[Rfam]
Rfam assigns this 106-nucleotide sequence from Peribacillus loiseleuriae to the family "SAM riboswitch aptamer (S box leader)".
RNA sequence: UUCUUAUCCAGAGAGGUGGAGGGACUUGGCCCUGCGAUACCUCGGCAACAGACUCAACUCUGAGCACUGUGCCACAUCCAACAAGCGAAGGCUUGGAAGAUAAGAA
Numbered sequence: 001u002u003c004u005u006a007u008c009c010a011g012a013g014a015g016g017u018g019g020a021g022g023g024a025c026u027u028g029g030c031c032c033u034g035c036g037a038u039a040c041c042u043c044g045g046c047a048a049c050a051g052a053c054u055c056a057a058c059u060c061u062g063a064g065c066a067c068u069g070u071g072c073c074a075c076a077u078c079c080a081a082c083a084a085g086c087g088a089a090g091g092c093u094u095g096g097a098a099g100a101u102a103a104g105a106a
Stems, first nucleotide, its partner, number of pairs: 001106008013043005021032003026081004044073004049069002051065001054062001077098001082095005